[Rfam]
RNA sequence: GGCCUUGCAGCGGGAGAGAGCCGAAAGGCCGCCGAAGGGGAAAUCGCCCGAAAUCUCUCAGGCAAAAGGAACCGCUGCCGGGUG
Numbered sequence: 001g002g003c004c005u006u007g008c009a010g011c012g013g014g015a016g017a018g019a020g021c022c023g024a025a026a027g028g029c030c031g032c033c034g035a036a037g038g039g040g041a042a043a044u045c046g047c048c049c050g051a052a053a054u055c056u057c058u059c060a061g062g063c064a065a066a067a068g069g070a071a072c073c074g075c076u077g078c079c080g081g082g083u084g
Stems, first nucleotide, its partner, number of pairs: 007078007020029003031063003034059002038057003044051002